[Rfam]
RNA sequence: GCAUUGGUGGUUCAGUGGUAGAAUUCUCGCCUCCCACGCGGGAGACCCGGGUUCAAUUCCCGGCCAAUGCA
Numbered sequence: 001g002c003a004u005u006g007g008u009g010g011u012u013c014a015g016u017g018g019u020a021g022a023a024u025u026c027u028c029g030c031c032u033c034c035c036a037c038g039c040g041g042g043a044g045a046c047c048c049g050g051g052u053u054c055a056a057u058u059c060c061c062g063g064c065c066a067a068u069g070c071a
Base pairs, nucleotide, nucleotide: 001070002069003068004067005066006065007064010024011023012022013021026042027041028040029039030038047063048062049061050060051059
RNA: tRNA